Small nucleolar RNA snoR109: a 103-nucleotide RNA sequence from Sesamum indicum. By type it is an H/ACA-box small nucleolar RNA. It scores 76 bits against the family's covariance model.

[Rfam]
RNA sequence: CGGCUGUAGCCAUAUUCAGCGGAGAAGUUUACUGGCCGGUUGUUUUCUUGGGAUUUCUCAAUCCCAAUCGUCGACAUAUCUGCUUACCGAACUUCUCACAUUC
Numbered sequence: 001c002g003g004c005u006g007u008a009g010c011c012a013u014a015u016u017c018a019g020c021g022g023a024g025a026a027g028u029u030u031a032c033u034g035g036c037c038g039g040u041u042g043u044u045u046u047c048u049u050g051g052g053a054u055u056u057c058u059c060a061a062u063c064c065c066a067a068u069c070g071u072c073g074a075c076a077u078a079u080c081u082g083c084u085u086a087c088c089g090a091a092c093u094u095c096u097c098a099c100a101u102u103c
Stems, first nucleotide, its partner, number of pairs: 022097008034084003038080003042075003